[Rfam]
RNA sequence: GCAGCGGCAGCGCCGAAUCCGCCCCAGCGCGGAACCGGGGACCCAGAACCGCCGGAAGUCCAGGGAACGUUCCUGGACGGCGUCCGGCGCCCGGGGUGAAUCGGUGAGUCUCUCCCGGACAACCGGUGAGAGCCCGCCGUAGGGCCACUUCCUCGCCCGAACCCGUCAGCUAACCCGGUAGGCGUCCAGGGAGAACAG
Numbered sequence: 001g002c003a004g005c006g007g008c009a010g011c012g013c014c015g016a017a018u019c020c021g022c023c024c025c026a027g028c029g030c031g032g033a034a035c036c037g038g039g040g041a042c043c044c045a046g047a048a049c050c051g052c053c054g055g056a057a058g059u060c061c062a063g064g065g066a067a068c069g070u071u072c073c074u075g076g077a078c079g080g081c082g083u084c085c086g087g088c089g090c091c092c093g094g095g096g097u098g099a100a101u102c103g104g105u106g107a108g109u110c111u112c113u114c115c116c117g118g119a120c121a122a123c124c125g126g127u128g129a130g131a132g133c134c135c136g137c138c139g140u141a142g143g144g145c146c147a148c149u150u151c152c153u154c155g156c157c158c159g160a161a162c163c164c165g166u167c168a169g170c171u172a173a174c175c176c177g178g179u180a181g182g183c184g185u186c187c188a189g190g191g192a193g194a195a196c197a198g
Stems, first nucleotide, its partner, number of pairs: 011184004018033005034179006044093001094164003102139004142158004
Shown here is a 198-nucleotide sequence from Actinomadura spongiicola, a member of the family "c-di-AMP riboswitch aptamer (ydaO/yuaA leader)". Gene Ontology terms of the family: cyclic-di-AMP binding and regulation of gene expression. A search with the family's covariance model found it, with a score of 66 bits. The source organism's lineage runs through Bacteria, Actinomycetota, Actinomycetes, Thermomonosporaceae and Actinomadura.